Ribosomal protein L13 leader: a 54-nucleotide sequence from Falseniella ignava. For this family Rfam cites "Diverse mechanisms for regulating ribosomal protein synthesis in Escherichia coli" (Zengel and Lindahl, Prog Nucleic Acid Res Mol Biol, 1994). A search with the family's covariance model found it, with a score of 59 bits. This family is a putative r-protein leader autoregulatory structure found in B. subtilis and other low-GC Gram-positive bacteria. It is located in the 5' untranslated regions of mRNAs encoding the L13-S9 (rplM-rpsI) ribosomal protein operon. The base pairs follow the family's consensus structure, which was predicted with CMfinder.
[Rfam]
RNA sequence: GGUAUUGUUUACCCCACAAUGAGCCCCGGAAACUCAUAGUAAUGUAAACAACUA
Numbered sequence: 001g002g003u004a005u006u007g008u009u010u011a012c013c014c015c016a017c018a019a020u021g022a023g024c025c026c027c028g029g030a031a032a033c034u035c036a037u038a039g040u041a042a043u044g045u046a047a048a049c050a051a052c053u054a
Base pairs, nucleotide, nucleotide: 006050007049008048009047010046011045012044016040017039019037020036021035022034023033